[Rfam]
RNA sequence: UGCGAAAACGUAUGUAAGUUGCUCAGGAUAAGAGCAUCUGCUAAAUGACUCAAA
Numbered sequence: 001u002g003c004g005a006a007a008a009c010g011u012a013u014g015u016a017a018g019u020u021g022c023u024c025a026g027g028a029u030a031a032g033a034g035c036a037u038c039u040g041c042u043a044a045a046u047g048a049c050u051c052a053a054a
Stems, first nucleotide, its partner, number of pairs: 013043001014041003020036005
Rfam assigns this 54-nucleotide RNA sequence from Oncorhynchus kisutch to the family "UnaL2 LINE 3' element". Gene Ontology term of the family: transposition, RNA-mediated. Rfam classes the family as a cis-regulatory element. The family's consensus secondary structure is taken from published work.